[Rfam]
RNA sequence: UGCUUAAGAGAUAAAAACACAGUUUCUGUUGGUAGUCAGAACCUAUAUUUAAUCAUUAAAAUUUAAUAUAGCAGUAACCUGCCCUCCUGGGGUUGUCCGUUCUCUAUAAAGUUAUA
Dot-bracket structure: ...(..(((((..........((.((((........))))))((((((.................)))))).........((((.....)))).......)))))..)........
RNA: azaaromatic riboswitch aptamer (yjdF RNA)